[Rfam]
RNA sequence: AGGUUAUGUCUACUGAACCUUUAUCACAAGUAGGCACUCGGUCAUGCUGUGGGUAUGCCAAUACCUUAGACGUUUAUCGUCAGUGGUGUGAUGUGAGGACGGGUUAGAUGCCCA
Numbered sequence: 001a002g003g004u005u006a007u008g009u010c011u012a013c014u015g016a017a018c019c020u021u022u023a024u025c026a027c028a029a030g031u032a033g034g035c036a037c038u039c040g041g042u043c044a045u046g047c048u049g050u051g052g053g054u055a056u057g058c059c060a061a062u063a064c065c066u067u068a069g070a071c072g073u074u075u076a077u078c079g080u081c082a083g084u085g086g087u088g089u090g091a092u093g094u095g096a097g098g099a100c101g102g103g104u105u106a107g108a109u110g111c112c113c114a
Base pairs, nucleotide, nucleotide: 001020002019003018004017007036008035009034010033011032012031013030037097038096039095040094041092042091043090044089045088046087047086048085051066052065053064054063055062056061069081070080071079072078101113102112103111104110
Dot-bracket structure: [[[[..(((((((...]]]].........)))))))((((((((((((..((((((....))))))..((((.....))))...)))))))).))))...((((.....)))).
The family of this 114-nucleotide RNA from Paenibacillus albilobatus is "epsC RNA". The source organism's lineage runs through Bacteria, Bacillati, Caryophanales, Paenibacillaceae and Paenibacillus. The family has 30 seed sequences and 450 matches in Rfam 15.1. The family's consensus secondary structure is taken from published work.